This 271-nucleotide RNA from Nannospalax galili belongs to the Rfam family "Mason-Pfizer monkey virus packaging signal".
RNA sequence: UGGCGCCCAACGUGGGGCUGGAUACUGGGGACAGCAUGAGGGACACGACGUAGGAAAAAGGGGUGCACACCCACUCAAAUAAUUCGGAGACACCGUGGGAGCCUGCCGCGACCAAGCUGAAAGUAAGUUGGUUGUUCAAUCAUGGGGCAAGAAUUAAGCCAGCAUCAGAUUUAUGUGAUACAGUUAAGAGAAGCUCUGCAGGCAAGAGGAGUAAAGGUUAAAACUGAGGAUUUAUUUCAUUUCUUUGAUUUUGUAAAGGACCUUUGUCCCU
Numbered sequence: 001u002g003g004c005g006c007c008c009a010a011c012g013u014g015g016g017g018c019u020g021g022a023u024a025c026u027g028g029g030g031a032c033a034g035c036a037u038g039a040g041g042g043a044c045a046c047g048a049c050g051u052a053g054g055a056a057a058a059a060g061g062g063g064u065g066c067a068c069a070c071c072c073a074c075u076c077a078a079a080u081a082a083u084u085c086g087g088a089g090a091c092a093c094c095g096u097g098g099g100a101g102c103c104u105g106c107c108g109c110g111a112c113c114a115a116g117c118u119g120a121a122a123g124u125a126a127g128u129u130g131g132u133u134g135u136u137c138a139a140u141c142a143u144g145g146g147g148c149a150a151g152a153a154u155u156a157a158g159c160c161a162g163c164a165u166c167a168g169a170u171u172u173a174u175g176u177g178a179u180a181c182a183g184u185u186a187a188g189a190g191a192a193g194c195u196c197u198g199c200a201g202g203c204a205a206g207a208g209g210a211g212u213a214a215a216g217g218u219u220a221a222a223a224c225u226g227a228g229g230a231u232u233u234a235u236u237u238c239a240u241u242u243c244u245u246u247g248a249u250u251u252u253g254u255a256a257a258g259g260a261c262c263u264u265u266g267u268c269c270c271u
Stems, first nucleotide, its partner, number of pairs: 006030003012025003035047001037045001080125002083121002091116001094110005131148002135146004155198002158194002206246006215233005256271001258269004
On this family, see Mustafa et al., Virus Res 2004: "Mutational analysis of the predicted secondary RNA structure of the Mason-Pfizer monkey virus packaging signal". A search with the family's covariance model found it, with a score of 170 bits. Rfam classes the family as a cis-regulatory element. NCBI's taxonomy places the organism under Eukaryota, Opisthokonta, Deuterostomia, Rodentia, Nannospalax. The family's consensus secondary structure was predicted with PFOLD. Its family is annotated with viral genome packaging in the Gene Ontology.